[Rfam]
The record is a 66-nucleotide RNA sequence, which matches "int-alpA RNA" in Rfam.
RNA sequence: GCCACCCCUAGCCUGGCCGGGCGAAAAGCGGAAACCUUCACCGCCUGGGGUGGCUUCUUAUGAAGG
Numbered sequence: 001g002c003c004a005c006c007c008c009u010a011g012c013c014u015g016g017c018c019g020g021g022c023g024a025a026a027a028g029c030g031g032a033a034a035c036c037u038u039c040a041c042c043g044c045c046u047g048g049g050g051u052g053g054c055u056u057c058u059u060a061u062g063a064a065g066g
Base pairs, nucleotide, nucleotide: 001054002053003052004051005050006049007048008047011022012021013020014019028044029043030042031041035066036065037064038063039062040061

About the family: Acidobacteria (1 example), Planctomycetes (1 example), Proteobacteria.
By type it is a small RNA.
The sequence is in the family's curated seed alignment.